Small nucleolar RNA Z157/R69/R10: a 95-nucleotide RNA from Protea cynaroides. A reference for the family is Chen et al. (2003), "The high diversity of snoRNAs in plants: identification and comparative study of 120 snoRNA genes from Oryza sativa", Nucleic Acids Res. A search with the family's covariance model found it, with a score of 79 bits. By type it is a C/D-box small nucleolar RNA.

[Rfam]
RNA sequence: AUAUGUGUGGUGAUGAAGCUAUUGUGGACUAGAGUUUCUGAUCUGGGUAUCGACCCAGAAACUGAAGACAAACCCUUGGCUGUCUGAGCACUUUU
Number, nucleotide and partner (000 for none) at each position: 001a095002u000003a093004u000005g091006u090007g089008u088009g000010g000011u000012g000013a000014u000015g000016a000017a000018g000019c000020u000021a000022u000023u000024g000025u000026g000027g000028a000029c000030u000031a000032g000033a000034g000035u067036u066037u065038c064039u000040g000041a000042u060043c058044u057045g056046g055047g054048u000049a000050u000051c000052g000053a000054c047055c046056c045057a044058g043059a000060a042061a000062c000063u000064g038065a037066a036067g035068a000069c000070a000071a000072a000073c000074c000075c000076u000077u000078g000079g000080c000081u000082g000083u000084c000085u000086g000087a000088g008089c007090a006091c005092u000093u003094u000095u001